[Rfam]
RNA sequence: AAAUCACACUAUUGUAAGUUACUUUGGAUAAAAGCGUCUGCUAAAUGACGUCUA
Numbered sequence: 001a002a003a004u005c006a007c008a009c010u011a012u013u014g015u016a017a018g019u020u021a022c023u024u025u026g027g028a029u030a031a032a033a034g035c036g037u038c039u040g041c042u043a044a045a046u047g048a049c050g051u052c053u054a
Stems, first nucleotide, its partner, number of pairs: 013043001014041003020036001022034004

A member of the RNA family "UnaL2 LINE 3' element" from Muraenolepis orangiensis, 54 nucleotides long. Rfam describes the family as follows. The eel long interspersed element (LINE) UnaL2 and its partner short interspersed element (SINE) share a conserved 3' tail containing a stem-loop that is critical for their retrotransposition. Presumably, the first step of retrotransposition is the recognition of their 3' tails by UnaL2-encoded reverse transcriptase. It scores 59 bits against the family's covariance model. Lineage of the source: Eukaryota > Opisthokonta > Bilateria > Euteleosteomorpha > Muraenolepis. For this family Rfam cites "Solution structure of an RNA stem-loop derived from the 3' conserved region of eel LINE UnaL2" (Baba et al., RNA, 2004). It is annotated as a cis-regulatory element.